The family of this 440-nucleotide part of an RNA from Alloprevotella tannerae is "Bacterial large subunit ribosomal RNA". Pairs were carried over by alignment from the consensus structure, which is taken from published work. Rfam's curators put it in the seed alignment. The source organism's lineage runs through Bacteria, Bacteroidales, Prevotellaceae, Alloprevotella and Alloprevotella tannerae. Its family is annotated with structural constituent of ribosome and ribosome in the Gene Ontology.

RNA sequence: CUCCCCGAAAUGCAUUUAGGUGCAGCCUCGGAUGUUUGCUGUAAGAGGUAGAGCGACUGAUCGGACGCGAGGGCUUCGCCGCCUGUCAAGUCCGGACAAACUCCGAAUGCUUACAGCUUAAGUCCGGGAGUGAGGGACGGGGUGCUAAGGUCCCGUCCCGAGAGGAGAAGAAUCCAGACCGUCAGCUAAGGUCCCGAAGUGUAGGUUAAGUUAGUCUAACGCAGUGUGGCCCCCAAGACAGCUAGGAUGUUGGCCCGGAAGCAGCCAUUCAUUCAAAGAGUGCGUAACAGCUCACUAGUCGAGGGGCUGCGCGUGGAUGAUAAUCGGGUAUAAAAUCUACCACCGAAGCUACGGAAUCCGUUUUUGGAUUGGUAGGGGAGCAUUGCCGUUGCUUAGAAGAUACGAGGACGACUUGUAUUGGAGCGGCGGGAAAAGCAAAU
Numbered sequence: 001c002u003c004c005c006c007g008a009a010a011u012g013c014a015u016u017u018a019g020g021u022g023c024a025g026c027c028u029c030g031g032a033u034g035u036u037u038g039c040u041g042u043a044a045g046a047g048g049u050a051g052a053g054c055g056a057c058u059g060a061u062c063g064g065a066c067g068c069g070a071g072g073g074c075u076u077c078g079c080c081g082c083c084u085g086u087c088a089a090g091u092c093c094g095g096a097c098a099a100a101c102u103c104c105g106a107a108u109g110c111u112u113a114c115a116g117c118u119u120a121a122g123u124c125c126g127g128g129a130g131u132g133a134g135g136g137a138c139g140g141g142g143u144g145c146u147a148a149g150g151u152c153c154c155g156u157c158c159c160g161a162g163a164g165g166a167g168a169a170g171a172a173u174c175c176a177g178a179c180c181g182u183c184a185g186c187u188a189a190g191g192u193c194c195c196g197a198a199g200u201g202u203a204g205g206u207u208a209a210g211u212u213a214g215u216c217u218a219a220c221g222c223a224g225u226g227u228g229g230c231c232c233c234c235a236a237g238a239c240a241g242c243u244a245g246g247a248u249g250u251u252g253g254c255c256c257g258g259a260a261g262c263a264g265c266c267a268u269u270c271a272u273u274c275a276a277a278g279a280g281u282g283c284g285u286a287a288c289a290g291c292u293c294a295c296u297a298g299u300c301g302a303g304g305g306g307c308u309g310c311g312c313g314u315g316g317a318u319g320a321u322a323a324u325c326g327g328g329u330a331u332a333a334a335a336u337c338u339a340c341c342a343c344c345g346a347a348g349c350u351a352c353g354g355a356a357u358c359c360g361u362u363u364u365u366g367g368a369u370u371g372g373u374a375g376g377g378g379a380g381c382a383u384u385g386c387c388g389u390u391g392c393u394u395a396g397a398a399g400a401u402a403c404g405a406g407g408a409c410g411a412c413u414u415g416u417a418u419u420g421g422a423g424c425g426g427c428g429g430g431a432a433a434a435g436c437a438a439a440u
Base pairs, nucleotide, nucleotide: 001380002379003378004377005376006375011024012023013022014021015020026130027128028127029126030125031124032123033122036121038117039116040115041114042113043112044111045110051104052102053101058098059097062094063093064092065091069087070086071084072083073082074081134159135158136157137156138155139154140153141152142151143150164175165174166173179354180353181352182351184350185349186348190344191343192342199341201340202339203338204337205336206335220315221314222313224312225311226310227309228308229307230306231305232304233303241299242298243297244296245295247272248271249270252266253265254264273277278293282291283290355370356369357368358367359366360365381435383432384431386429387428388427389426390425391424392423399419400418401417402416403415404414405413406412